[Rfam]
RNA: Selenocysteine insertion sequence 1
Organism: Lepisosteus oculatus
RNA sequence: AAUGUGUUCAUGAUAGCCUGCUUAUAAACUCCACUGAGGGAGCAGGCUUGAUGCCUACAGU
Numbered sequence: 001a002a003u004g005u006g007u008u009c010a011u012g013a014u015a016g017c018c019u020g021c022u023u024a025u026a027a028a029c030u031c032c033a034c035u036g037a038g039g040g041a042g043c044a045g046g047c048u049u050g051a052u053g054c055c056u057a058c059a060g061u
Base pairs, nucleotide, nucleotide: 001061003059004058005057015048016047017046018045019044020043021042022041023040029038030037031036